The family of this 74-nucleotide RNA from Stegodyphus mimosarum is "mir-87 microRNA precursor family". Pairs were carried over by alignment from the consensus structure, which was predicted with RNAalifold. On this family, see Sempere et al., Dev Biol 2003: "Temporal regulation of microRNA expression in Drosophila melanogaster mediated by hormonal signals and broad-Complex gene activity". Lineage of the source: Eukaryota > Eumetazoa > Ecdysozoa > Eresidae > Stegodyphus.
[Rfam]
RNA sequence: CACCCUUCCACCUGAAACGUUGUCUCAACCUUUAUUGUAAGAAGAGGUGAGCAAAAUUUCAGGUGUGGGGGUGA
Numbered sequence: 001c002a003c004c005c006u007u008c009c010a011c012c013u014g015a016a017a018c019g020u021u022g023u024c025u026c027a028a029c030c031u032u033u034a035u036u037g038u039a040a041g042a043a044g045a046g047g048u049g050a051g052c053a054a055a056a057u058u059u060c061a062g063g064u065g066u067g068g069g070g071g072u073g074a
Stems, first nucleotide, its partner, number of pairs: 002072006009065007017057001020054002024051004029047003